[Rfam]
This 69-nucleotide RNA sequence from Capsicum annuum belongs to the Rfam family "Plastid-clpP 5UTR RNA". Lineage of the source: Eukaryota > Streptophytina > Gunneridae > Solanoideae > Capsicum. The literature on the family includes a 2023 paper in Plant Commun by Richter et al., "Retrograde signaling in plants: A critical review focusing on the GUN pathway and beyond". Rfam describes the family as follows. Plastid clpP is a non-coding RNA (ncRNA) recognised in plastids. It was found in the prime untranslated region (5UTR) of a protease complex subunit (clpP) in plastids, suggesting a posible cis-regulatory function. The family's consensus secondary structure was predicted with LocARNA.

RNA sequence: AAUUCAGUUCGUAGGAACAAAGAGGAACAAAUUUAUUUUAUACUUGGUAAGUACCAAUACGCAAUAGGG
Numbered sequence: 001a002a003u004u005c006a007g008u009u010c011g012u013a014g015g016a017a018c019a020a021a022g023a024g025g026a027a028c029a030a031a032u033u034u035a036u037u038u039u040a041u042a043c044u045u046g047g048u049a050a051g052u053a054c055c056a057a058u059a060c061g062c063a064a065u066a067g068g069g
Stems, first nucleotide, its partner, number of pairs: 003022002007018004043068003051060003